Rfam assigns this 89-nucleotide RNA sequence from Herbihabitans rhizosphaerae to the family "ZMP/ZTP riboswitch aptamer (pfl RNA motif)". NCBI's taxonomy places the organism under Bacteria, Bacillati, Actinomycetota, Pseudonocardiales, Herbihabitans. It scores 55 bits against the family's covariance model.
RNA sequence: UUCGGGUGUCGCGACUGGCGUGUUCAGGGUGGAACCGACCACCGGGGAGCGACCGAAUCGGAGCGAUGCCGUACGCCUGGGCGCCUCCG
Numbered sequence: 001u002u003c004g005g006g007u008g009u010c011g012c013g014a015c016u017g018g019c020g021u022g023u024u025c026a027g028g029g030u031g032g033a034a035c036c037g038a039c040c041a042c043c044g045g046g047g048a049g050c051g052a053c054c055g056a057a058u059c060g061g062a063g064c065g066a067u068g069c070c071g072u073a074c075g076c077c078u079g080g081g082c083g084c085c086u087c088c089g
Base pairs, nucleotide, nucleotide: 008053009052010051011050012049015046016045017077018076019075020074021073029042030041031040032039067083068082069081070080